Shown here is a 58-nucleotide sequence from Ictalurus punctatus, a member of the family "mir-144 microRNA precursor family".
It is one of the family's seed sequences.
The source organism's lineage runs through Eukaryota, Vertebrata, Neopterygii, Characiphysae and Ictalurus.
RNA sequence: GGAUAUCAUCGUAUACUGUAAGUUCAUUAUUGAGACACUACAGUAUAGAUGAUGUACU
Numbered sequence: 001g002g003a004u005a006u007c008a009u010c011g012u013a014u015a016c017u018g019u020a021a022g023u024u025c026a027u028u029a030u031u032g033a034g035a036c037a038c039u040a041c042a043g044u045a046u047a048g049a050u051g052a053u054g055u056a057c058u
Stems, first nucleotide, its partner, number of pairs: 001057001003055008012047009022036003